[Rfam]
This 70-nucleotide RNA sequence from Fopius arisanus belongs to the Rfam family "mir-375 microRNA precursor family".
RNA sequence: GAUACAUCGGGCCCAGCGUUCAACAAACUUUAUUAAUUAAUUAAGUUUGUUCGUUCGGCUCGAGUUAUCA
Numbered sequence: 001g002a003u004a005c006a007u008c009g010g011g012c013c014c015a016g017c018g019u020u021c022a023a024c025a026a027a028c029u030u031u032a033u034u035a036a037u038u039a040a041u042u043a044a045g046u047u048u049g050u051u052c053g054u055u056c057g058g059c060u061c062g063a064g065u066u067a068u069c070a
Base pairs, nucleotide, nucleotide: 001069002068003067004065005064008062009061010060011059012058013057017053018052023050024049025048026047028045029044